RNA: S4-Flavobacteria ribosomal protein leader
Organism: Polaribacter sp. WD7
RNA sequence: GAUUAUCGAAGGAUCAAGCCUUAAUUCAUAGUC
Numbered sequence: 001g002a003u004u005a006u007c008g009a010a011g012g013a014u015c016a017a018g019c020c021u022u023a024a025u026u027c028a029u030a031g032u033c
Stems, first nucleotide, its partner, number of pairs: 001033006008027001009022004